RNA sequence: CUUGACAUAGGCCUUCUCUUCUCAGUUCUUCCCCAAGUUGGGAAAAGCUGAGCUGAGAGGGGGGAAAGAAAAAUCU
Numbered sequence: 001c002u003u004g005a006c007a008u009a010g011g012c013c014u015u016c017u018c019u020u021c022u023c024a025g026u027u028c029u030u031c032c033c034c035a036a037g038u039u040g041g042g043a044a045a046a047g048c049u050g051a052g053c054u055g056a057g058a059g060g061g062g063g064g065a066a067a068g069a070a071a072a073a074u075c076u
Stems, first nucleotide, its partner, number of pairs: 014059005021052005029044005
The family of this 76-nucleotide RNA sequence from Piliocolobus tephrosceles is "mir-320 microRNA precursor family". Rfam links the family to the GO terms RISC complex, long-term synaptic potentiation and miRNA-mediated post-transcriptional gene silencing. NCBI's taxonomy places the organism under Eukaryota, Deuterostomia, Haplorrhini, Simiiformes, Piliocolobus. It scores 76 bits against the family's covariance model. Pairs were carried over by alignment from the consensus structure, which was predicted with RNAalifold.